Source information:
tRNA: a 99-nucleotide sequence from Rhodocollybia butyracea. Its family is annotated with triplet codon-amino acid adaptor activity in the Gene Ontology. Taxonomically the source falls in Rhodocollybia (Eukaryota, Basidiomycota, Agaricales, Marasmiineae). The match comes from Rfam's covariance-model search (47 bits). About the family: Transfer RNA (tRNA) molecules are approximately 80 nucleotides in length. Their secondary structure includes four short double-helical elements and three loops (D, anti-codon, and T loops). Further hydrogen bonds mediate the characteristic L-shaped molecular structure. tRNAs have two regions of fundamental functional importance: the anti-codon, which is responsible for specific mRNA codon recognition, and the 3' end, to which the tRNAs corresponding amino acid is attached (by aminoacyl-tRNA synthetases). tRNAs cope with the degeneracy of the genetic code in two manners: having more than one tRNA (with a specific anti-codon) for a particular amino acid; and 'wobble' base-pairing, i.e. permitting non-standard base-pairing at the 3rd anti-codon position.
[Rfam]
RNA sequence: GCCGGCGUGGCGCAAUGGUAGCGCGUAGCUUUCCUAUAAACCCAGUUCCUUAGCAUUCUUAGGAGGCUGAAGUUGCGGGUUCGAUCCCCGUCGUCGGUU
Numbered sequence: 001g002c003c004g005g006c007g008u009g010g011c012g013c014a015a016u017g018g019u020a021g022c023g024c025g026u027a028g029c030u031u032u033c034c035u036a037u038a039a040a041c042c043c044a045g046u047u048c049c050u051u052a053g054c055a056u057u058c059u060u061a062g063g064a065g066g067c068u069g070a071a072g073u074u075g076c077g078g079g080u081u082c083g084a085u086c087c088c089c090g091u092c093g094u095c096g097g098u099u
Stems, first nucleotide, its partner, number of pairs: 001098007010024004026069008075091005